[Rfam]
RNA: MIR164 microRNA precursor family
Organism: Macleaya cordata
RNA sequence: UGGAGAAGGGGAGCACGUGCAAAAGUGAGUUGAGUUUGAAGGCCUUUGCACGUGCCCUGCUUCUCCAAC
Numbered sequence: 001u002g003g004a005g006a007a008g009g010g011g012a013g014c015a016c017g018u019g020c021a022a023a024a025g026u027g028a029g030u031u032g033a034g035u036u037u038g039a040a041g042g043c044c045u046u047u048g049c050a051c052g053u054g055c056c057c058u059g060c061u062u063c064u065c066c067a068a069c
Base pairs, nucleotide, nucleotide: 001067002066003065004064005063006062007061008060010058011057013055014054015053016052017051018050019049020048021047022046023045028035